[Rfam]
RNA sequence: AAUUUAUCAAGAGUGGACGAGAGAUUGGCUUUAUGACUCCACAGCAACCUACUUAUGUAAGGUGCUAAUACCAACAAAGCUUAAGCUUUGGAUGAUAAAGA
Numbered sequence: 001a002a003u004u005u006a007u008c009a010a011g012a013g014u015g016g017a018c019g020a021g022a023g024a025u026u027g028g029c030u031u032u033a034u035g036a037c038u039c040c041a042c043a044g045c046a047a048c049c050u051a052c053u054u055a056u057g058u059a060a061g062g063u064g065c066u067a068a069u070a071c072c073a074a075c076a077a078a079g080c081u082u083a084a085g086c087u088u089u090g091g092a093u094g095a096u097a098a099a100g101a
Stems, first nucleotide, its partner, number of pairs: 003099006013042005021031003025074004043066004048062002050059003070093001075090006